[Rfam]
A member of the RNA family "Purine riboswitch aptamer" from Levilactobacillus bambusae, 99 nucleotides long. About the family: Riboswitches are metabolite binding domains within certain messenger RNAs that serve as precision sensors for their corresponding targets. It scores 71 bits against the family's covariance model. The base pairs follow the family's consensus structure, which is taken from published work. NCBI's taxonomy places the organism under Bacteria, Bacilli, Lactobacillales, Lactobacillaceae, Levilactobacillus.
RNA sequence: ACUAAUAUAUUUUUCAUUGCCUAUAUAAUGUCAUGAUAUGGAUGACGAGUUUCUACCCAGAACCGUAAAUUCUGGACUAUAAGCAAAUUGAGCCUCGAA
Numbered sequence: 001a002c003u004a005a006u007a008u009a010u011u012u013u014u015c016a017u018u019g020c021c022u023a024u025a026u027a028a029u030g031u032c033a034u035g036a037u038a039u040g041g042a043u044g045a046c047g048a049g050u051u052u053c054u055a056c057c058c059a060g061a062a063c064c065g066u067a068a069a070u071u072c073u074g075g076a077c078u079a080u081a082a083g084c085a086a087a088u089u090g091a092g093c094c095u096c097g098a099a
Stems, first nucleotide, its partner, number of pairs: 018085003022081004029047006057075006